This 158-nucleotide sequence from Streptomyces sp. GMY02 belongs to the Rfam family "c-di-AMP riboswitch aptamer (ydaO/yuaA leader)". The pairing is the family consensus, mapped onto this sequence. This family represents a conserved RNA structure found upstream of the ydaO and yuaA genes in Bacillus subtilis and related genes in other bacteria. The match comes from Rfam's covariance-model search (94 bits). NCBI's taxonomy places the organism under Bacteria, Actinomycetota, Kitasatosporales, Streptomycetaceae, Streptomyces.
RNA sequence: UGCGCGCACGCGCCGAAUCCCGUGAGGGAACCGGGGAACCACCACCUUGGGGUGAAUCGCACGUCGUCCGCCGUGCCGUCACGGCCGGUCGACGCGCGUAGGAGACCUUCCCGCUCCGAACCCGUCAGCUAACCCGGUAGGCGACGCGGAAGGAAAGG
Numbered sequence: 001u002g003c004g005c006g007c008a009c010g011c012g013c014c015g016a017a018u019c020c021c022g023u024g025a026g027g028g029a030a031c032c033g034g035g036g037a038a039c040c041a042c043c044a045c046c047u048u049g050g051g052g053u054g055a056a057u058c059g060c061a062c063g064u065c066g067u068c069c070g071c072c073g074u075g076c077c078g079u080c081a082c083g084g085c086c087g088g089u090c091g092a093c094g095c096g097c098g099u100a101g102g103a104g105a106c107c108u109u110c111c112c113g114c115u116c117c118g119a120a121c122c123c124g125u126c127a128g129c130u131a132a133c134c135c136g137g138u139a140g141g142c143g144a145c146g147c148g149g150a151a152g153g154a155a156a157g158g
Stems, first nucleotide, its partner, number of pairs: 011143004018029003030138006040049002050123003058098003101117004